Nucleotides: 046
Base pairs, nucleotide, nucleotide: 007041008040010038011037012036014034015033016032017031
Number, partner (000 for none) and nucleotide at each position: 001000a002000a003000g004000a005000g006000c007041u008040u009000g010038g011037a012036g013000c014034c015033a016032a017031u018000a019000a020000a021000g022000a023000c024000u025000a026000a027000g028000a029000a030000g031017a032016u033015u034014g035000a036012c037011u038010u039000a040008g041007a042000a043000c044000a045000a046000a
Rfam assigns this 46-nucleotide RNA from Olea europaea to the family "Plastid-rpl16 group II-D1 intron". The family's consensus secondary structure was predicted with LocARNA. Rfam's curators write: Plastid-rpl16 is a non-coding RNA (ncRNA) recognised in plastids. It was recognised in and intronic region of a ribosome rpl16 gene. A search with the family's covariance model found it, with a score of 59 bits. For this family Rfam cites "Retrograde signaling in plants: A critical review focusing on the GUN pathway and beyond" (Richter et al., Plant Commun, 2023).